The record is a 587-nucleotide part of an RNA from Candidatus Kentrum sp. G, which matches "Bacterial large subunit ribosomal RNA" in Rfam. Its Rfam clan is "LSU clan". Pairs were carried over by alignment from the consensus structure, which is taken from published work.

RNA sequence: CCCGCGGCUAGACGGAAAGACCCCGUGAACCUUUACUACAGCUUUGCACUGAACUUUGAAUAUGUUUGUGUAGGAUAGGUGGGAGGCUUUGAAGCUAGAACGCUAGUUCUGGUGGAGCCAUCCUUGAAAUACCACCCUGGCAUGUUUGGGGUUCUAACCCAGGCUCGUUAUCCGGGCCGGGGACAGUGCAUGGUGGGUAGUUUGACUGGGGCGGUCUCCUCCUAAAGAGUAACGGAGGAGCGCGAAGGUGCCCUCAGCACGGUCGGAAAUCGUGCAGUGAGUGUAAAGGCAAAAGGGCGCUUGACUGCGAGACAGACAAGUCGAGCAGGUGCGAAAGCAGGCCUUAGUGAUCCGGUGGUUCUGAGUGGAAGGGCCAUCGCUCAACGGAUAAAAGGUACUCCGGGGAUAACAGGCUGAUACCGCCCAAGAGUUCGUAUCGACGGCGGUGUUUGGCACCUCGAUGUCGGCUCAUCACAUCCUGGGGCUGUAGCUGGUCCCAAGGGUAUGGCUGUUCGCCAUUUAAAGUGGUACGCGAGCUGGGUUUAGAACGUCGUGAGACAGUUCGGUCCCUAUCUGCCGUGGGCGUU
Numbered sequence: 001c002c003c004g005c006g007g008c009u010a011g012a013c014g015g016a017a018a019g020a021c022c023c024c025g026u027g028a029a030c031c032u033u034u035a036c037u038a039c040a041g042c043u044u045u046g047c048a049c050u051g052a053a054c055u056u057u058g059a060a061u062a063u064g065u066u067u068g069u070g071u072a073g074g075a076u077a078g079g080u081g082g083g084a085g086g087c088u089u090u091g092a093a094g095c096u097a098g099a100a101c102g103c104u105a106g107u108u109c110u111g112g113u114g115g116a117g118c119c120a121u122c123c124u125u126g127a128a129a130u131a132c133c134a135c136c137c138u139g140g141c142a143u144g145u146u147u148g149g150g151g152u153u154c155u156a157a158c159c160c161a162g163g164c165u166c167g168u169u170a171u172c173c174g175g176g177c178c179g180g181g182g183a184c185a186g187u188g189c190a191u192g193g194u195g196g197g198u199a200g201u202u203u204g205a206c207u208g209g210g211g212c213g214g215u216c217u218c219c220u221c222c223u224a225a226a227g228a229g230u231a232a233c234g235g236a237g238g239a240g241c242g243c244g245a246a247g248g249u250g251c252c253c254u255c256a257g258c259a260c261g262g263u264c265g266g267a268a269a270u271c272g273u274g275c276a277g278u279g280a281g282u283g284u285a286a287a288g289g290c291a292a293a294a295g296g297g298c299g300c301u302u303g304a305c306u307g308c309g310a311g312a313c314a315g316a317c318a319a320g321u322c323g324a325g326c327a328g329g330u331g332c333g334a335a336a337g338c339a340g341g342c343c344u345u346a347g348u349g350a351u352c353c354g355g356u357g358g359u360u361c362u363g364a365g366u367g368g369a370a371g372g373g374c375c376a377u378c379g380c381u382c383a384a385c386g387g388a389u390a391a392a393a394g395g396u397a398c399u400c401c402g403g404g405g406a407u408a409a410c411a412g413g414c415u416g417a418u419a420c421c422g423c424c425c426a427a428g429a430g431u432u433c434g435u436a437u438c439g440a441c442g443g444c445g446g447u448g449u450u451u452g453g454c455a456c457c458u459c460g461a462u463g464u465c466g467g468c469u470c471a472u473c474a475c476a477u478c479c480u481g482g483g484g485c486u487g488u489a490g491c492u493g494g495u496c497c498c499a500a501g502g503g504u505a506u507g508g509c510u511g512u513u514c515g516c517c518a519u520u521u522a523a524a525g526u527g528g529u530a531c532g533c534g535a536g537c538u539g540g541g542u543u544u545a546g547a548a549c550g551u552c553g554u555g556a557g558a559c560a561g562u563u564c565g566g567u568c569c570c571u572a573u574c575u576g577c578c579g580u581g582g583g584c585g586u587u
Stems, first nucleotide, its partner, number of pairs: 001583008010575003014570002022404004027400002029396005035201004042193002045190004051154016068137001078136005085119003094113008158181003162178006204216004217239006240385001242342002248300006254280002257275006281290002305328004311322003330339003353379007361372002413454003417451001418448007428438002465540001466538004470532001471529005478503002481498006505519005546564004550559003

The organism belongs to Candidatus Kentrum, within Bacteria.